[Rfam]
RNA sequence: UAAAUUAAAAUAAUGUUUCGUCGUAUAAUAUCGGAAAUAUGGUCCGAAAGUUUCUACCAAGCUGCCGUGAACAGCUUGACUACGAUGUAAAAGAAUUUAGGU
Numbered sequence: 001u002a003a004a005u006u007a008a009a010a011u012a013a014u015g016u017u018u019c020g021u022c023g024u025a026u027a028a029u030a031u032c033g034g035a036a037a038u039a040u041g042g043u044c045c046g047a048a049a050g051u052u053u054c055u056a057c058c059a060a061g062c063u064g065c066c067g068u069g070a071a072c073a074g075c076u077u078g079a080c081u082a083c084g085a086u087g088u089a090a091a092a093g094a095a096u097u098u099a100g101g102u
Stems, first nucleotide, its partner, number of pairs: 019087007029049001031047005058078007
Shown here is a 102-nucleotide RNA sequence from Peribacillus asahii, a member of the family "Purine riboswitch aptamer". For this family Rfam cites "Riboswitches Control Fundamental Biochemical Pathways in Bacillus subtilis and Other Bacteria" (Mandal et al., Cell, 2003). The source organism's lineage runs through Bacteria, Bacillota, Bacilli, Bacillaceae and Peribacillus. The base pairs follow the family's consensus structure, which is taken from published work.